[Rfam]
RNA sequence: UUACUAUGAUGGUUGCAUAGAUUACAUCAUGAAAGAGAUAUACCAUUUGUCUGAUGUAGAA
Numbered sequence: 001u002u003a004c005u006a007u008g009a010u011g012g013u014u015g016c017a018u019a020g021a022u023u024a025c026a027u028c029a030u031g032a033a034a035g036a037g038a039u040a041u042a043c044c045a046u047u048u049g050u051c052u053g054a055u056g057u058a059g060a061a
Stems, first nucleotide, its partner, number of pairs: 001059004006030005013020002036048004
Small nucleolar RNA SNORD77: a 61-nucleotide sequence from Odocoileus virginianus.
The family has 21 seed sequences and 396 matches in Rfam 15.1.
Rfam links the family to the GO terms nucleolus and RNA processing.
The literature on the family includes a 2004 paper in Curr Biol by Tycowski et al., "Guide RNAs with 5' caps and novel box C/D snoRNA-like domains for modification of snRNAs in metazoa".
The family's RNA type in Rfam is C/D-box small nucleolar RNA.
Rfam's curators write: U77 belongs to the C/D family of snoRNAs. It is predicted to guide 2'O-ribose methylation of large 28S rRNA subunit at position A1521. The C/D snoRNAs U44, U47, U74, U75, U76, U78, U79, U80 and U81 share the same host gene as U77 (non-coding).
It scores 44 bits against the family's covariance model.
Taxonomically the source falls in Odocoileus virginianus (Eukaryota, Tetrapoda, Amniota, Laurasiatheria).